[Rfam]
RNA: Methylophilales-1 RNA
RNA sequence: CGUUAGUGCAGAGAAUAAAGCAGUAAGCGUGUGCAAACAUGCCGAUGAGUCGUCGUUGACCUAGUGCGAUUCUGCUGAAAUAGAUUAGGCGCACUAACC
Numbered sequence: 001c002g003u004u005a006g007u008g009c010a011g012a013g014a015a016u017a018a019a020g021c022a023g024u025a026a027g028c029g030u031g032u033g034c035a036a037a038c039a040u041g042c043c044g045a046u047g048a049g050u051c052g053u054c055g056u057u058g059a060c061c062u063a064g065u066g067c068g069a070u071u072c073u074g075c076u077g078a079a080a081u082a083g084a085u086u087a088g089g090c091g092c093a094c095u096a097a098c099c
Stems, first nucleotide, its partner, number of pairs: 002098008019076004027042006047072006054066005